[Rfam]
RNA sequence: UUCGUUCAUCUUAACUGACGGAAGUAGAAUACUGCAAGGGUAUUCGAAGGAACGCAUU
Numbered sequence: 001u002u003c004g005u006u007c008a009u010c011u012u013a014a015c016u017g018a019c020g021g022a023a024g025u026a027g028a029a030u031a032c033u034g035c036a037a038g039g040g041u042a043u044u045c046g047a048a049g050g051a052a053c054g055c056a057u058u
Base pairs, nucleotide, nucleotide: 003054004053005052006051007050009018010017021055027045028044029043030042031041032040033039

The family of this 58-nucleotide RNA is "Glutamine riboswitch aptamer (glnA leader)". For this family Rfam cites "Structural and Dynamic Basis for Low-Affinity, High-Selectivity Binding of L-Glutamine by the Glutamine Riboswitch" (Ren et al., Cell Rep, 2015). Its family is annotated with glutamine binding in the Gene Ontology.